[Rfam]
A member of the RNA family "Small nucleolar RNA snoR53Y" from Spirodela intermedia, 81 nucleotides long. Its Rfam clan is "snoR53 clan". The organism belongs to Spirodela, within Eukaryota. The family has 7 seed sequences and 513 matches in Rfam 15.1. For this family Rfam cites "Multiple snoRNA gene clusters from Arabidopsis" (Brown et al., RNA, 2001).
RNA sequence: GUUCCCUAUGAUGCUUUUCUUGACCAUGCUAACGCUGAAGUUCAUUUUUGACGAGUUUUUUCUGGAAUGUCUGAGGGAACA
Dot-bracket structure: (((((((..................................................................))))))).
Numbered sequence: 001g002u003u004c005c006c007u008a009u010g011a012u013g014c015u016u017u018u019c020u021u022g023a024c025c026a027u028g029c030u031a032a033c034g035c036u037g038a039a040g041u042u043c044a045u046u047u048u049u050g051a052c053g054a055g056u057u058u059u060u061u062c063u064g065g066a067a068u069g070u071c072u073g074a075g076g077g078a079a080c081a
Stems, first nucleotide, its partner, number of pairs: 001080007